[Rfam]
RNA sequence: ACUUAAUCAUGCACCACGAACAUAUUGAUGAAAGCUUGCUGCCGUAGCAUAACACCUAAAAACGGCAUAAAAUUCGCAUAAAACGAGGCGGUUUUUAGUACGUAGGCAUCUCUGGGGGGAGGAUAUCCACCCCAAUGAUGAAUCGUGCAUGCACACUCACAUAGGCCAAACAAGAACUACCGGCCGAGUGUGUAUCUUUUGAGAUUUUACGACCUUAGCGAC
Numbered sequence: 001a002c003u004u005a006a007u008c009a010u011g012c013a014c015c016a017c018g019a020a021c022a023u024a025u026u027g028a029u030g031a032a033a034g035c036u037u038g039c040u041g042c043c044g045u046a047g048c049a050u051a052a053c054a055c056c057u058a059a060a061a062a063c064g065g066c067a068u069a070a071a072a073u074u075c076g077c078a079u080a081a082a083a084c085g086a087g088g089c090g091g092u093u094u095u096u097a098g099u100a101c102g103u104a105g106g107c108a109u110c111u112c113u114g115g116g117g118g119g120a121g122g123a124u125a126u127c128c129a130c131c132c133c134a135a136u137g138a139u140g141a142a143u144c145g146u147g148c149a150u151g152c153a154c155a156c157u158c159a160c161a162u163a164g165g166c167c168a169a170a171c172a173a174g175a176a177c178u179a180c181c182g183g184c185c186g187a188g189u190g191u192g193u194a195u196c197u198u199u200u201g202a203g204a205u206u207u208u209a210c211g212a213c214c215u216u217a218g219c220g221a222c
Base pairs, nucleotide, nucleotide: 040067041066042065043064044063045062074221075220076219077218085216086215087214088213090210098148099147100146101145102144107140108139109138110137117128118127119126150194151193152192153191154190155189156188157187158186

Record summary
The record is a 222-nucleotide sequence from Drosophila ananassae, which matches "R2 RNA element" in Rfam. Rfam describes the family as follows. This family represents the 3' UTR region of the R2 retrotransposable element. The family has 15 seed sequences and 3,698 matches in Rfam 15.1.